SAM riboswitch aptamer (S box leader): a 114-nucleotide RNA sequence from Ureibacillus sinduriensis. The SAM riboswitch is found upstream of a number of genes which code for proteins involved in methionine or cysteine biosynthesis in Gram-positive bacteria. The match comes from Rfam's covariance-model search (75 bits).

[Rfam]
RNA sequence: CUCUUAUCCCGAGAUGGUGGAGGGUCAAGGCCCUAUGAAACCCGGCAACCUGCAUUAUUCAUUUAAUGCGAUGGUGCCAACCUGAUGCAAGGGAAUACCCUUGAACGAUAAGAG
Numbered sequence: 001c002u003c004u005u006a007u008c009c010c011g012a013g014a015u016g017g018u019g020g021a022g023g024g025u026c027a028a029g030g031c032c033c034u035a036u037g038a039a040a041c042c043c044g045g046c047a048a049c050c051u052g053c054a055u056u057a058u059u060c061a062u063u064u065a066a067u068g069c070g071a072u073g074g075u076g077c078c079a080a081c082c083u084g085a086u087g088c089a090a091g092g093g094a095a096u097a098c099c100c101u102u103g104a105a106c107g108a109u110a111a112g113a114g
Stems, first nucleotide, its partner, number of pairs: 001114008013043001016042003022033003028086001030083001044078004049074002051070006088103006